The family of this 102-nucleotide sequence from Bacilli bacterium VT-13-104 is "Purine riboswitch aptamer".
RNA sequence: ACUGUAAAUUAAAUAAAAACGCGUAUAAUCUCGGGGAUAUGGCCCAAGAGUUUCUACUAAACUACCGUAAAUAGUUUGACUACGCAGAGAUAUUGGGAUGAA
Numbered sequence: 001a002c003u004g005u006a007a008a009u010u011a012a013a014u015a016a017a018a019a020c021g022c023g024u025a026u027a028a029u030c031u032c033g034g035g036g037a038u039a040u041g042g043c044c045c046a047a048g049a050g051u052u053u054c055u056a057c058u059a060a061a062c063u064a065c066c067g068u069a070a071a072u073a074g075u076u077u078g079a080c081u082a083c084g085c086a087g088a089g090a091u092a093u094u095g096g097g098a099u100g101a102a
Stems, first nucleotide, its partner, number of pairs: 021085005029049003033045003058078007
The match comes from Rfam's covariance-model search (79 bits).